[Rfam]
RNA: MIR4371 microRNA precursor family
Organism: Glycine soja
RNA sequence: CCGUUAAGUGAUGAUGUGACAGACGGAAUGUCACGUCAAUACGUCCAAUCACUGACACAUCAGUGUCAUGUUAUUGAUGAUGAUGACAUGACAAUGAUGAUGUUCGUGACAAGGCGUGAUGACAUGACAUUUUGUUUACUACAUCAUUACUUAACGAAA
Numbered sequence: 001c002c003g004u005u006a007a008g009u010g011a012u013g014a015u016g017u018g019a020c021a022g023a024c025g026g027a028a029u030g031u032c033a034c035g036u037c038a039a040u041a042c043g044u045c046c047a048a049u050c051a052c053u054g055a056c057a058c059a060u061c062a063g064u065g066u067c068a069u070g071u072u073a074u075u076g077a078u079g080a081u082g083a084u085g086a087c088a089u090g091a092c093a094a095u096g097a098u099g100a101u102g103u104u105c106g107u108g109a110c111a112a113g114g115c116g117u118g119a120u121g122a123c124a125u126g127a128c129a130u131u132u133u134g135u136u137u138a139c140u141a142c143a144u145c146a147u148u149a150c151u152u153a154a155c156g157a158a159a
Base pairs, nucleotide, nucleotide: 002156003155004154005153006152007151008150009149010148011147012146013145014144015143016142017141018140021137022136023135024134025133026132027131028130029129030128031127032126033125035123036122037121038120040118041117042116043115044114045113049109050108051107052106054104055103056102057101058099070087071086072085073084074083